[Rfam]
RNA sequence: GGGUCGGCUUUAGCUCAAGCGGUUACUUCGCAUGUGGUUACUAAACCUUCCAACCCUCUCGUUAGGGUUCGAGACCCGCGGGUGCUUUCUGACCCUUUU
Numbered sequence: 001g002g003g004u005c006g007g008c009u010u011u012a013g014c015u016c017a018a019g020c021g022g023u024u025a026c027u028u029c030g031c032a033u034g035u036g037g038u039u040a041c042u043a044a045a046c047c048u049u050c051c052a053a054c055c056c057u058c059u060c061g062u063u064a065g066g067g068u069u070c071g072a073g074a075c076c077c078g079c080g081g082g083u084g085c086u087u088u089c090u091g092a093c094c095c096u097u098u099u
Stems, first nucleotide, its partner, number of pairs: 002094006013083004019079004027073004
This 99-nucleotide RNA from Felis catus belongs to the Rfam family "Vault RNA". From the family's description: This family of RNAs are found as part of the enigmatic vault ribonucleoprotein complex. A reference for the family is Stadler et al. (2009), "Evolution of Vault RNAs", Mol Biol Evol. Taxonomically the source falls in Felis (Eukaryota, Vertebrata, Gnathostomata, Felinae).